[Rfam]
RNA sequence: CUGUGUCUUGCUUCAACAUUGUUGGGACAGAACAG
Dot-bracket structure: ((((.(((.(.(((.((...).).)))))))))))
This 35-nucleotide RNA from Chrysochloris asiatica belongs to the Rfam family "Iron response element I". Gene Ontology term of the family: response to iron ion. On this family, see Hentze et al., Science 1987: "Identification of the iron-responsive element for the translational regulation of human ferritin mRNA". The match comes from Rfam's covariance-model search (39 bits). The source organism's lineage runs through Eukaryota, Deuterostomia, Euteleostomi, Sarcopterygii and Chrysochloris. Pairs were carried over by alignment from the consensus structure, which is taken from published work.